[Rfam]
RNA sequence: AAGCAUUCUCAAACCCCCCUGGUUGUGUUAUAGCUUCCAGGAUAAGGAUGAAUGCAAGAGAAACUGUAGAACUAUCCAAAAUGCAGAGCUUUUCCUCAUAGCGCUGCAUUAUUUCACAUCUUCAACAGUG
Numbered sequence: 001a002a003g004c005a006u007u008c009u010c011a012a013a014c015c016c017c018c019c020u021g022g023u024u025g026u027g028u029u030a031u032a033g034c035u036u037c038c039a040g041g042a043u044a045a046g047g048a049u050g051a052a053u054g055c056a057a058g059a060g061a062a063a064c065u066g067u068a069g070a071a072c073u074a075u076c077c078a079a080a081a082u083g084c085a086g087a088g089c090u091u092u093u094c095c096u097c098a099u100a101g102c103g104c105u106g107c108a109u110u111a112u113u114u115c116a117c118a119u120c121u122u123c124a125a126c127a128g129u130g
Stems, first nucleotide, its partner, number of pairs: 003055004009047002018041005025034002061129001065124002068121003080110007088102002092098001
The family of this 130-nucleotide sequence from Sphenodon punctatus is "Small nucleolar RNA SNORA14". ACA14 is a member of the H/ACA class of snoRNA that guide the sites of modification of uridines to pseudouridines. The organism belongs to Sphenodon, within Eukaryota.